The record is a 209-nucleotide sequence from Carpinus fangiana, which matches "MIR168 microRNA precursor family" in Rfam. The base pairs follow the family's consensus structure, which was predicted with WAR.

RNA sequence: UUACCGGCGGUCUCUAAUUCGCUUGGUGCAGGUCGGGAACUGCUUCGCUUUUGCCCUUAGAACACAUACGUGUCUGGGAGUACUGUUUAAUUUUUUAGCCAGCUGGCGCGUUGCUAUUGGCUGGCUGGCUGGCUGUGCUCGUGUUGGGGGGGCAAUAUAGGCGAAUUGGAUCCCGCCUUGCAUCAACUGAAUCGGAGACCGCGGUGAAG
Numbered sequence: 001u002u003a004c005c006g007g008c009g010g011u012c013u014c015u016a017a018u019u020c021g022c023u024u025g026g027u028g029c030a031g032g033u034c035g036g037g038a039a040c041u042g043c044u045u046c047g048c049u050u051u052u053g054c055c056c057u058u059a060g061a062a063c064a065c066a067u068a069c070g071u072g073u074c075u076g077g078g079a080g081u082a083c084u085g086u087u088u089a090a091u092u093u094u095u096u097a098g099c100c101a102g103c104u105g106g107c108g109c110g111u112u113g114c115u116a117u118u119g120g121c122u123g124g125c126u127g128g129c130u131g132g133c134u135g136u137g138c139u140c141g142u143g144u145u146g147g148g149g150g151g152g153c154a155a156u157a158u159a160g161g162c163g164a165a166u167u168g169g170a171u172c173c174c175g176c177c178u179u180g181c182a183u184c185a186a187c188u189g190a191a192u193c194g195g196a197g198a199c200c201g202c203g204g205u206g207a208a209g
Stems, first nucleotide, its partner, number of pairs: 013196002017192004023186010034175005040169002
Notes: Gene Ontology terms of the family: RISC complex and miRNA-mediated post-transcriptional gene silencing. It scores 102 bits against the family's covariance model. The organism belongs to Carpinus, within Eukaryota.